Background:
A member of the RNA family "MIR5565 microRNA precursor family" from Sorghum bicolor, 106 nucleotides long. The match comes from Rfam's covariance-model search (90 bits).
[Rfam]
RNA sequence: GUAGCCGGAUUCGCAUCAAUCCAUAUGUUUUGGGGUGGAUUGGAGUAGAACUUGAACUAAAUUGUACCCUAAUCCACUCCAACACAUGUGGAUUGAGGUGCCAACA
Numbered sequence: 001g002u003a004g005c006c007g008g009a010u011u012c013g014c015a016u017c018a019a020u021c022c023a024u025a026u027g028u029u030u031u032g033g034g035g036u037g038g039a040u041u042g043g044a045g046u047a048g049a050a051c052u053u054g055a056a057c058u059a060a061a062u063u064g065u066a067c068c069c070u071a072a073u074c075c076a077c078u079c080c081a082a083c084a085c086a087u088g089u090g091g092a093u094u095g096a097g098g099u100g101c102c103a104a105c106a
Stems, first nucleotide, its partner, number of pairs: 004105001007102002012100003016096013030082003035077009045067003